[Rfam]
RNA: U2 spliceosomal RNA
Organism: Trichomonas vaginalis
RNA sequence: UUUGCACUCAGGGCGAUUCGCUCUGAAUAAGUGUAGUAUCUGUUCUGAAUCGCUUGACAGCGGUUCGCCUGGUAUGUGCCAGGCGCCUCUGUUCAUACUAAUUUAUUAACUCAUUGUCCUAGCAUGUCUAGGCGAUGGAUUUAGGCGGUGUCUUCACUAUCUCACCUAACCUAAAUCACCCAAU
Numbered sequence: 001u002u003u004g005c006a007c008u009c010a011g012g013g014c015g016a017u018u019c020g021c022u023c024u025g026a027a028u029a030a031g032u033g034u035a036g037u038a039u040c041u042g043u044u045c046u047g048a049a050u051c052g053c054u055u056g057a058c059a060g061c062g063g064u065u066c067g068c069c070u071g072g073u074a075u076g077u078g079c080c081a082g083g084c085g086c087c088u089c090u091g092u093u094c095a096u097a098c099u100a101a102u103u104u105a106u107u108a109a110c111u112c113a114u115u116g117u118c119c120u121a122g123c124a125u126g127u128c129u130a131g132g133c134g135a136u137g138g139a140u141u142u143a144g145g146c147g148g149u150g151u152c153u154u155c156a157c158u159a160u161c162u163c164a165c166c167u168a169a170c171c172u173a174a175a176u177c178a179c180c181c182a183a184u
Base pairs, nucleotide, nucleotide: 008026009025010024012022013021014020015019047066048065049064050063051062052061068083069082070081071080072079073078114135115134116133119131120130121129122128138177139176140175141174142173143172147166148165149164150163